RNA sequence: GGGCGUUCUGAAGACCUGCUCUCUAGGCCACAUACUGAGGACGCUGGUUCCUCCAAGGGCUCCCGAGCCCGCCUAGGGGAAAGUCCCCGGACCCCGGGCAGAGAGUGCCGCUCGCUCCGCAGCGUGCAGUGACCCGCCUCGCCGGCUCACGUUCUCCCCGCCGAGAAGCCCUUCGGGCUGAGCGGGUGGGCGCGGGAUGGGCUGCCCGUCACUCCUACAGGAACGCAGGUAGUGCGCAGGCGUGUUUCCCUCCGGGGGCUGCCGCCGCCGCACCAACAGAACGGGGCUCAUUCUCAGAAUGCC
Numbered sequence: 001g002g003g004c005g006u007u008c009u010g011a012a013g014a015c016c017u018g019c020u021c022u023c024u025a026g027g028c029c030a031c032a033u034a035c036u037g038a039g040g041a042c043g044c045u046g047g048u049u050c051c052u053c054c055a056a057g058g059g060c061u062c063c064c065g066a067g068c069c070c071g072c073c074u075a076g077g078g079g080a081a082a083g084u085c086c087c088c089g090g091a092c093c094c095c096g097g098g099c100a101g102a103g104a105g106u107g108c109c110g111c112u113c114g115c116u117c118c119g120c121a122g123c124g125u126g127c128a129g130u131g132a133c134c135c136g137c138c139u140c141g142c143c144g145g146c147u148c149a150c151g152u153u154c155u156c157c158c159c160g161c162c163g164a165g166a167a168g169c170c171c172u173u174c175g176g177g178c179u180g181a182g183c184g185g186g187u188g189g190g191c192g193c194g195g196g197a198u199g200g201g202c203u204g205c206c207c208g209u210c211a212c213u214c215c216u217a218c219a220g221g222a223a224c225g226c227a228g229g230u231a232g233u234g235c236g237c238a239g240g241c242g243u244g245u246u247u248c249c250c251u252c253c254g255g256g257g258g259c260u261g262c263c264g265c266c267g268c269c270g271c272a273c274c275a276a277c278a279g280a281a282c283g284g285g286g287c288u289c290a291u292u293c294u295c296a297g298a299a300u301g302c303c
Stems, first nucleotide, its partner, number of pairs: 002303010014230006022077007037053005082288002085286004097109004110127002113124003129202002138196005146190004158185004168178004232273005
RNase MRP: a 303-nucleotide RNA from Chrysemys picta. Clan: RNaseP clan. By type it is a ribozyme. Pairs were carried over by alignment from the consensus structure, which is taken from published work. Rfam's curators write: RNase MRP is an enzymatically active ribonucleoprotein with two distinct roles in eukaryotes.